[Rfam]
This 143-nucleotide sequence from Loigolactobacillus rennini belongs to the Rfam family "THF (Tetrahydrofolate) riboswitch aptamer". A search with the family's covariance model found it, with a score of 69 bits. Gene Ontology term of the family: tetrahydrofolate metabolic process.
RNA sequence: AUCGGAGUAGGAUGCAAAGCGUUAAGUGCCGCCGGAACGGAAUGUGAACGGUGGACGAAAAGUGUUGAUUGAACUGCUUAGCUGAAAUGAUAGGCUAAACGCAUCAAUUGAUGACUUGCGGUUUUGCGUUCGCAUUCGCCGCA
Number, nucleotide and partner (000 for none) at each position: 001a000002u000003c141004g140005g139006a000007g000008u000009a000010g131011g130012a129013u128014g127015c126016a125017a124018a123019g122020c120021g119022u118023u000024a000025a000026g056027u055028g000029c054030c053031g052032c051033c050034g049035g000036a000037a000038c000039g000040g137041a136042a135043u134044g133045u000046g000047a000048a000049c034050g033051g032052u031053g030054g029055a027056c026057g000058a000059a000060a117061a116062g115063u114064g000065u000066u000067g000068a000069u000070u000071g000072a000073a000074c000075u000076g000077c000078u000079u000080a000081g000082c000083u000084g000085a000086a000087a000088u000089g000090a000091u000092a000093g000094g000095c000096u000097a000098a000099a000100c000101g000102c000103a000104u000105c000106a000107a000108u000109u000110g000111a000112u000113g000114a063115c062116u061117u060118g022119c021120g020121g000122u019123u018124u017125u016126g015127c014128g013129u012130u011131c010132g000133c044134a043135u042136u041137c040138g000139c005140c004141g003142c000143a000
Description:
About the family: Tetrahydrofolate (THF) riboswitch was first reported for Ames et al. as an RNA motif in 5' untranslated (5'-UTR)regions of folate transport and biosynthesis genes in Firmicutes genomes.